[Rfam]
RNA sequence: CUGCCAACUUCAUAAUCUUUUCAUAUAAUCGCAGGGAUAUGGCCUGCAAGUUUCUACCGGUUUACCGUAAAUGAACCGACUAUGAAAAGCAGCAUGGUAGUA
Numbered sequence: 001c002u003g004c005c006a007a008c009u010u011c012a013u014a015a016u017c018u019u020u021u022c023a024u025a026u027a028a029u030c031g032c033a034g035g036g037a038u039a040u041g042g043c044c045u046g047c048a049a050g051u052u053u054c055u056a057c058c059g060g061u062u063u064a065c066c067g068u069a070a071a072u073g074a075a076c077c078g079a080c081u082a083u084g085a086a087a088a089g090c091a092g093c094a095u096g097g098u099a100g101u102a
Stems, first nucleotide, its partner, number of pairs: 018088008029049001031047005058078007

Rfam assigns this 102-nucleotide RNA from Thalassobacillus cyri to the family "Purine riboswitch aptamer". The match comes from Rfam's covariance-model search (84 bits).